[Rfam]
RNA sequence: AAAUACCUUCGUGAUGUGGUUGUGGUAAUCAAGAUUAAUUGAUUACAAAGGGCAAUAUAUUAUUGCCCUUUUGUUUUU
Number, nucleotide and partner (000 for none) at each position: 001a000002a000003a000004u000005a000006c000007c000008u000009u000010c000011g000012u000013g000014a000015u000016g000017u000018g000019g000020u000021u000022g000023u000024g000025g046026u045027a044028a043029u042030c041031a040032a039033g000034a000035u000036u000037a000038a000039u032040u031041g030042a029043u028044u027045a026046c025047a000048a070049a069050g068051g067052g066053c065054a064055a063056u062057a061058u000059a000060u000061u057062a056063u055064u054065g053066c052067c051068c050069u049070u048071u000072u000073g000074u000075u000076u000077u000078u000

Rfam assigns this 78-nucleotide RNA from Salmonella enterica to the family "ABC transporter regulator".
It is annotated as a cis-regulatory element.